[Rfam]
RNA sequence: CGCUCCGGGGCGGGGCGCGAGACAAAAGAAAAGAACCCAGGGAAAGAACCAACCCCACCCCUCCCACCUCCCCGAGUCGGCGCACGUCAGCGCCGAUCCUGGCUCGUCACCCACACGAGGGAACUGUGCCAACUGGGCUGGAUUGGGGGCAGGUUGCCUGGCAUAUGCUCGCGGCGACCGCACUGAAAAACAGUUCGGCCCCCGGCCGGGACUAGCGAUCCCGACAGAGGGCCUGACCACCGAGGAAGCGAAACCCUUCCCG
Numbered sequence: 001c002g003c004u005c006c007g008g009g010g011c012g013g014g015g016c017g018c019g020a021g022a023c024a025a026a027a028g029a030a031a032a033g034a035a036c037c038c039a040g041g042g043a044a045a046g047a048a049c050c051a052a053c054c055c056c057a058c059c060c061c062u063c064c065c066a067c068c069u070c071c072c073c074g075a076g077u078c079g080g081c082g083c084a085c086g087u088c089a090g091c092g093c094c095g096a097u098c099c100u101g102g103c104u105c106g107u108c109a110c111c112c113a114c115a116c117g118a119g120g121g122a123a124c125u126g127u128g129c130c131a132a133c134u135g136g137g138c139u140g141g142a143u144u145g146g147g148g149g150c151a152g153g154u155u156g157c158c159u160g161g162c163a164u165a166u167g168c169u170c171g172c173g174g175c176g177a178c179c180g181c182a183c184u185g186a187a188a189a190a191c192a193g194u195u196c197g198g199c200c201c202c203c204g205g206c207c208g209g210g211a212c213u214a215g216c217g218a219u220c221c222c223g224a225c226a227g228a229g230g231g232c233c234u235g236a237c238c239a240c241c242g243a244g245g246a247a248g249c250g251a252a253a254c255c256c257u258u259c260c261c262g
Base pairs, nucleotide, nucleotide: 007241008240010238014094015093016092017091107122108121110119112117137175138174139171140170141169197233198232199231200230201229203227208222209221210220211219244260245259246258247257248256

Streptomyces sRNA 4677: a 262-nucleotide RNA from Streptomyces showdoensis. From the family's description: Located in the intergenic region between anti-sigma factor SCO4677 gene and a putative regulatory protein gene SCO4676. scr4677 expression requires the SCO4677 activity and scr4677 sRNA itself seem to affect the levels of the SCO4676-associated transcripts. NCBI's taxonomy places the organism under Bacteria, Actinomycetota, Actinomycetes, Kitasatosporales, Streptomyces. The pairing is the family consensus, mapped onto this sequence. By type it is a small RNA.